[Rfam]
A member of the RNA family "Na+ riboswitch aptamer (DUF1646)", 50 nucleotides long. Rfam's curators put it in the seed alignment.

RNA sequence: GGUUGGGCAGGCAACUGCUUUCAAGUUUUGAGCUUUAAGGGUGGGGGGCU
Numbered sequence: 001g002g003u004u005g006g007g008c009a010g011g012c013a014a015c016u017g018c019u020u021u022c023a024a025g026u027u028u029u030g031a032g033c034u035u036u037a038a039g040g041g042u043g044g045g046g047g048g049c050u
Base pairs, nucleotide, nucleotide: 003024004023005022006019007018008017009016010015031050032049033048034047035046036045